Shown here is a 101-nucleotide RNA sequence, a member of the family "wcaG RNA".
[Rfam]
RNA sequence: UCUGGUUUCUUGCUUUUCCAUCAAAAAGCAAGUGGUGCGGAUGGGACUCUCUCCCGCCUGGUUUCCAAUUUCCAGUUAAAGAAUUGGUGGCGAGCAACCUG
Numbered sequence: 001u002c003u004g005g006u007u008u009c010u011u012g013c014u015u016u017u018c019c020a021u022c023a024a025a026a027a028g029c030a031a032g033u034g035g036u037g038c039g040g041a042u043g044g045g046a047c048u049c050u051c052u053c054c055c056g057c058c059u060g061g062u063u064u065c066c067a068a069u070u071u072c073c074a075g076u077u078a079a080a081g082a083a084u085u086g087g088u089g090g091c092g093a094g095c096a097a098c099c100u101g
Base pairs, nucleotide, nucleotide: 009032010031011030012029013028014027015026016025017024042056043055044054045053046052058075059074060073061072065087066086067085068084069083070082